Shown here is a 300-nucleotide sequence from Powellomyces hirtus, a member of the family "RNase MRP". Rfam's curators write: RNase MRP is an enzymatically active ribonucleoprotein with two distinct roles in eukaryotes. Taxonomically the source falls in Powellomyces (Eukaryota, Fungi, Chytridiomycota, Chytridiomycotina).
RNA sequence: CAAACAUCUCGGAGAAUCGCUUUUCGAAGCAGCACAUACGGAGUCGUAAAAACACUCACAUCAUUUGCUUUGGGGAAAGUCCUCGAACACUCGGCAGAAAGUGCCGUCGCUAGCCGCGGGUCCUAUCCUCCGCCUCCCAUUGCUGACUCCCGUCGUUCUUGCAAAGAUCCGCUUGGCGGUAUGCUGGCGGUGGGUCAGCGGGCGACCGGGGCAUGUGGUUCGUUAUAGCACAGUCAUGCGAUUGCGGUCGAUGCCGCAAGGUGUCGGCUGUAACUCAACGAGGCUUACUCCCGAGCGUUU
Numbered sequence: 001c002a003a004a005c006a007u008c009u010c011g012g013a014g015a016a017u018c019g020c021u022u023u024u025c026g027a028a029g030c031a032g033c034a035c036a037u038a039c040g041g042a043g044u045c046g047u048a049a050a051a052a053c054a055c056u057c058a059c060a061u062c063a064u065u066u067g068c069u070u071u072g073g074g075g076a077a078a079g080u081c082c083u084c085g086a087a088c089a090c091u092c093g094g095c096a097g098a099a100a101g102u103g104c105c106g107u108c109g110c111u112a113g114c115c116g117c118g119g120g121u122c123c124u125a126u127c128c129u130c131c132g133c134c135u136c137c138c139a140u141u142g143c144u145g146a147c148u149c150c151c152g153u154c155g156u157u158c159u160u161g162c163a164a165a166g167a168u169c170c171g172c173u174u175g176g177c178g179g180u181a182u183g184c185u186g187g188c189g190g191u192g193g194g195u196c197a198g199c200g201g202g203c204g205a206c207c208g209g210g211g212c213a214u215g216u217g218g219u220u221c222g223u224u225a226u227a228g229c230a231c232a233g234u235c236a237u238g239c240g241a242u243u244g245c246g247g248u249c250g251a252u253g254c255c256g257c258a259a260g261g262u263g264u265c266g267g268c269u270g271u272a273a274c275u276c277a278a279c280g281a282g283g284c285u286u287a288c289u290c291c292c293g294a295g296c297g298u299u300u
Stems, first nucleotide, its partner, number of pairs: 002300004008295005015243006024073007041057004047051001077286003081283004093105004116130001142199006151192004159186001161184002169179004245270010
Dot-bracket structure: .((((..(((((..((((((...(((((((..........((((..(...)..)))).........)))))))...[[[.[[[[........((((.....))))..........(.............)...........((((((...((((....(.((......((((...))))...)).)..)))).))))))......................................)))))).((((((((((......)))))))))).........]]]]]]]....))))).))))